[Rfam]
RNA sequence: AGACCACAUGAUUAUAUGUUAAGCCUUGCGGACGGGCGGGUCGGUUGCCGA
Numbered sequence: 001a002g003a004c005c006a007c008a009u010g011a012u013u014a015u016a017u018g019u020u021a022a023g024c025c026u027u028g029c030g031g032a033c034g035g036g037c038g039g040g041u042c043g044g045u046u047g048c049c050g051a
Base pairs, nucleotide, nucleotide: 002042003041004040005039006019007018008017009016010015
About this RNA:
This 51-nucleotide RNA belongs to the Rfam family "Streptococcus sRNA SpF59 (ldcC RNA)". On this family, see Mann et al., PLoS Pathog 2012: "Control of virulence by small RNAs in Streptococcus pneumoniae". The base pairs follow the family's consensus structure, which was predicted with mfold.